[Rfam]
RNA sequence: CAGGACAAGUUUGAGGCCAUAGCAGAAGCAUUUAUGACGAGACCUGUCAGAUUCCAAUGAAUCUGUAAAUUCUGCU
Dot-bracket structure: ..............[[.[..(((((((.(.........).].]]...(((((((....)))))))....)))))))

A member of the RNA family "Mammalian CPEB3 ribozyme" from Alligator sinensis, 76 nucleotides long. Lineage of the source: Eukaryota > Opisthokonta > Chordata > Sauria > Alligator. The base pairs follow the family's consensus structure, which is taken from published work.